[Rfam]
RNA sequence: UGGUUGAAGGAGCACGCCUGGAAAGCGUGUGUACUGGAAACGGUACCGAGGGUUCGAAUCCCUCUCUCUCCGCCAUAAAUUUUACUAAUCGCAGGCCGGUAUACGGCUUUUUGUUUUCUAGGCCGGGCUAUAGCAGUGCCGGGUCUUACGCAAUGAGAACUCAUGAACCGCGUCAGAUUCGGAAGGAAGCAGCGCUAAGUGAUCAUUCUUAUGUGCCGUAAGGGUGCCUGGUGUCUGCUAUGGUCCGUCGUAGAAAACAAAGCCGUAACUGUACCU
Dot-bracket structure: .(((..(.((.((((((.(...).))))))...(((.......................................................))).)).((...(((((..((((((((((...(((((((((((.(((((((((((((((((.(((((..((((.....((((....(((....)))....))))...))))....)))))))...))))))...)))))))))..)))))))))...)))))))))))))))))..)))..))).
A member of the RNA family "Bacterial large signal recognition particle RNA" from Sporomusa malonica, 276 nucleotides long. Lineage of the source: Bacteria > Negativicutes > Selenomonadales > Sporomusaceae > Sporomusa. The family's consensus secondary structure is taken from published work.